[Rfam]
RNA sequence: AUGUUAUUAAGAAAGGUGGAGAGAAUAGACUCUGUGAAACCUUGGCAACCUUCGCUUUUGCGAAAAGGUGCUACAUUCUACUCGCCUUUGGCGAGUGAGAUAACAA
Dot-bracket structure: .(((((((....(((((...(((..[[[[)))......)))))((((.((((((......))))..))))))...(]]]]((((((...))))))..)))))))).
About this RNA
A member of the RNA family "SAM riboswitch aptamer (S box leader)" from Frigoriflavimonas asaccharolytica, 106 nucleotides long. It scores 81 bits against the family's covariance model. The source organism's lineage runs through Bacteria, Pseudomonadati, Flavobacteriia, Flavobacteriales and Frigoriflavimonas. The SAM riboswitch is found upstream of a number of genes which code for proteins involved in methionine or cysteine biosynthesis in Gram-positive bacteria.